[Rfam]
RNA sequence: UUUUACAGCGAGUUUUGUUGGUUUGCUCUCAGCCUCUGCCAGUCUCUGCUGUGCAAAUCCAUGCAAAGCUCCCUGUUUCU
Dot-bracket structure: ....((((.(((((((((.(((((((.(..(((..............)))).))))).))..))))))))).))))....
RNA: mir-19 microRNA precursor family
Organism: Lates calcarifer